[Rfam]
RNA: Small nucleolar RNA snoR74
Nucleotides: 135
Stems, first nucleotide, its partner, number of pairs: 005045003011034002014031004062129006068122003077116007
Number, partner (000 for none) and nucleotide at each position: 001000g002000a003000a004000a005045a006044a007043g008000c009000a010000g011034a012033g013000u014031u015030c016029u017028g018000u019000c020000g021000c022000a023000u024000u025000u026000g027000a028017c029016a030015g031014a032000u033012c034011u035000c036000a037000c038000g039000u040000a041000a042000a043007c044006u045005u046000c047000a048000g049000g050000g051000a052000a053000a054000u055000u056000g057000a058000a059000u060000u061000g062129g063128u064127c065126a066125u067124c068122g069121u070120g071000a072000u073000u074000g075000g076000g077116u078115g079114a080113a081112u082111c083110u084000a085000a086000g087000u088000u089000u090000u091000g092000u093000u094000u095000u096000u097000u098000c099000u100000u101000a102000c103000a104000a105000c106000u107000a108000a109000a110083a111082g112081g113080u114079u115078c116077a117000g118000u119000a120070c121069a122068c123000u124067g125066a126065u127064g128063g129062u130000a131000c132000a133000u134000u135000g